[Rfam]
RNA sequence: CCAGGUUUUUGCCAUCAGCGAGGUAUAGAGUUCCUACGUUGUUUUUCAAAAUUGUAGGAACUUCAUACCGUGCUCUUGGAGAGCCUAA
Numbered sequence: 001c002c003a004g005g006u007u008u009u010u011g012c013c014a015u016c017a018g019c020g021a022g023g024u025a026u027a028g029a030g031u032u033c034c035u036a037c038g039u040u041g042u043u044u045u046u047c048a049a050a051a052u053u054g055u056a057g058g059a060a061c062u063u064c065a066u067a068c069c070g071u072g073c074u075c076u077u078g079g080a081g082a083g084c085c086u087a088a
Stems, first nucleotide, its partner, number of pairs: 012079003017074004022069005028063010
The family of this 88-nucleotide sequence from Ceratitis capitata is "mir-276 microRNA precursor family".